RNA sequence: GUUGGCUAUGGUGACAUGGUCCCCACGACCAUCGGGGGGAAAAUAGUGGGUUCCUUGUGUGCCAUCGCUGGUGUAUUAACGAUUGCCUUACCGGUGCCCGUCAUAGUGUCCAAC
Numbered sequence: 001g002u003u004g005g006c007u008a009u010g011g012u013g014a015c016a017u018g019g020u021c022c023c024c025a026c027g028a029c030c031a032u033c034g035g036g037g038g039g040a041a042a043a044u045a046g047u048g049g050g051u052u053c054c055u056u057g058u059g060u061g062c063c064a065u066c067g068c069u070g071g072u073g074u075a076u077u078a079a080c081g082a083u084u085g086c087c088u089u090a091c092c093g094g095u096g097c098c099c100g101u102c103a104u105a106g107u108g109u110c111c112a113a114c
Stems, first nucleotide, its partner, number of pairs: 001114002004111002007108003011104001013102003018097001021094001037077002040074001049063003
The family of this 114-nucleotide RNA from Nyctiprogne leucopyga is "Potassium channel RNA editing signal". It is annotated as a cis-regulatory element. A search with the family's covariance model found it, with a score of 105 bits. Taxonomically the source falls in Nyctiprogne (Eukaryota, Metazoa, Sarcopterygii, Dinosauria).